[Rfam]
RNA sequence: GCGGAAAUAUCAUAUUCUUUUCGUAUAACCUCGCAGGCAAUAUGCAGGGCGAGGGUUUCUACAGGGAGCCUUUACUUCCUAACUACGGAGCCAUGAAUGAGCUUA
Numbered sequence: 001g002c003g004g005a006a007a008u009a010u011c012a013u014a015u016u017c018u019u020u021u022c023g024u025a026u027a028a029c030c031u032c033g034c035a036g037g038c039a040a041u042a043u044g045c046a047g048g049g050c051g052a053g054g055g056u057u058u059c060u061a062c063a064g065g066g067a068g069c070c071u072u073u074a075c076u077u078c079c080u081a082a083c084u085a086c087g088g089a090g091c092c093a094u095g096a097a098u099g100a101g102c103u104u105a
Stems, first nucleotide, its partner, number of pairs: 019090007029054006064080005
RNA: Purine riboswitch aptamer
Organism: Paenibacillus catalpae